ClpQY promoter: a 55-nucleotide sequence. The match comes from Rfam's covariance-model search (49 bits). It is annotated as a cis-regulatory element. Its family is annotated with mRNA stabilization in the Gene Ontology.

RNA sequence: CCCUGCGCACCGCGCAGGGCUCCUGUUUAGCUGAUGCAAAAGGGGUCCGAUCGUG
Numbered sequence: 001c002c003c004u005g006c007g008c009a010c011c012g013c014g015c016a017g018g019g020c021u022c023c024u025g026u027u028u029a030g031c032u033g034a035u036g037c038a039a040a041a042g043g044g045g046u047c048c049g050a051u052c053g054u055g
Base pairs, nucleotide, nucleotide: 001019002018003017004016005015006014007013008012